[Rfam]
RNA: mir-135 microRNA precursor family
Organism: Clupea harengus
RNA sequence: UUCUCCCUGCUCUGUAUGGCUUUUUAUUCCUAUCUGACUGUGCUAAGGAUUCAUAUAGGGAUGGAAGCCAUGCAGGGCGCGGAGCC
Number, nucleotide and partner (000 for none) at each position: 001u000002u000003c084004u083005c082006c081007c000008u079009g078010c077011u076012c075013u074014g073015u072016a071017u070018g069019g068020c067021u066022u065023u064024u000025u000026a062027u061028u060029c059030c058031u057032a056033u055034c000035u053036g052037a051038c000039u000040g000041u000042g000043c000044u000045a000046a000047g000048g000049a000050u000051u037052c036053a035054u000055a033056u032057a031058g030059g029060g028061a027062u026063g000064g023065a022066a021067g020068c019069c018070a017071u016072g015073c014074a013075g012076g011077g010078c009079g008080c000081g006082g005083a004084g003085c000086c000